[Rfam]
Rfam assigns this 131-nucleotide sequence from Austrofundulus limnaeus to the family "Small Cajal body specific RNA 8". From the family's description: scaRNAs are a specific class of small nuclear RNAs which localise to the Cajal bodies and guide the modification of RNA polymerase II transcribed spliceosomal RNAs U1, U2, U4, U5 and U12. Gene Ontology terms of the family: RNA processing, nucleolus and Cajal body. A reference for the family is Darzacq et al. (2002), "Cajal body-specific small nuclear RNAs: a novel class of 2'-O-methylation and pseudouridylation guide RNAs", EMBO J.

RNA sequence: UGGGAGGCAGAUACCUGGGCAGAGCGAAGCGGUGAUCUGUCCGUCACUGGUUCUCCCUACAGCAUCCCUGCUCUCUGAUGACCGCGGCGAAUUGAGAGAAAUCGCCACGGACAGAUACGGAGCAGACAGAU
Numbered sequence: 001u002g003g004g005a006g007g008c009a010g011a012u013a014c015c016u017g018g019g020c021a022g023a024g025c026g027a028a029g030c031g032g033u034g035a036u037c038u039g040u041c042c043g044u045c046a047c048u049g050g051u052u053c054u055c056c057c058u059a060c061a062g063c064a065u066c067c068c069u070g071c072u073c074u075c076u077g078a079u080g081a082c083c084g085c086g087g088c089g090a091a092u093u094g095a096g097a098g099a100a101a102u103c104g105c106c107a108c109g110g111a112c113a114g115a116u117a118c119g120g121a122g123c124a125g126a127c128a129g130a131u
Stems, first nucleotide, its partner, number of pairs: 002057006016043003022037002025034001068125007082110003087105004